[Rfam]
RNA: tRNA
RNA sequence: AGGGAUAUAGUAUAAAGGUAGUACAUCGGUCUCCAAAACCGCUAGUGUGGGUUCAAUUCCUACUAUCCCUG
Numbered sequence: 001a002g003g004g005a006u007a008u009a010g011u012a013u014a015a016a017g018g019u020a021g022u023a024c025a026u027c028g029g030u031c032u033c034c035a036a037a038a039c040c041g042c043u044a045g046u047g048u049g050g051g052u053u054c055a056a057u058u059c060c061u062a063c064u065a066u067c068c069c070u071g
Base pairs, nucleotide, nucleotide: 001070002069003068004067005066006065007064010024011023012022013021027041028040029039030038047063048062049061050060051059